[Rfam]
RNA sequence: AUAUACACUGAGUGGCUAGAUUAUUAUGCUUUUGAAGAUCAUAAUAAUCUGGCCACUCAGUGUAUAC
Numbered sequence: 001a002u003a004u005a006c007a008c009u010g011a012g013u014g015g016c017u018a019g020a021u022u023a024u025u026a027u028g029c030u031u032u033u034g035a036a037g038a039u040c041a042u043a044a045u046a047a048u049c050u051g052g053c054c055a056c057u058c059a060g061u062g063u064a065u066a067c
Stems, first nucleotide, its partner, number of pairs: 004064014019049010
Overview
The family of this 67-nucleotide RNA sequence from Pipistrellus kuhlii is "mir-9256 microRNA precursor family". Rfam links the family to the GO terms miRNA-mediated post-transcriptional gene silencing and RISC complex. Lineage of the source: Eukaryota > Teleostomi > Mammalia > Eutheria > Pipistrellus.